[Rfam]
RNA: JUMPstart RNA
RNA sequence: UAGUGUAUUGGUAGCUACGAGCCAAGGGCGGUAGCGUA
Numbered sequence: 001u002a003g004u005g006u007a008u009u010g011g012u013a014g015c016u017a018c019g020a021g022c023c024a025a026g027g028g029c030g031g032u033a034g035c036g037u038a
Stems, first nucleotide, its partner, number of pairs: 008025005